[Rfam]
RNA: Small nucleolar RNA R21
Organism: Rhynchospora breviuscula
Nucleotides: 081
Base pairs, nucleotide, nucleotide: 001081002080004078005077006076
Number, partner (000 for none) and nucleotide at each position: 001081u002080g003000c004078c005077c006076c007000u008000a009000u010000g011000a012000a013000g014000a015000u016000u017000g018000a019000a020000a021000u022000u023000a024000a025000a026000u027000a028000a029000a030000a031000g032000u033000a034000g035000u036000g037000g038000g039000c040000u041000g042000a043000u044000a045000u046000c047000u048000a049000a050000u051000u052000u053000u054000g055000a056000u057000g058000a059000a060000a061000a062000u063000c064000g065000u066000u067000u068000a069000a070000u071000u072000c073000u074000g075000a076006g077005g078004g079000a080002u081001g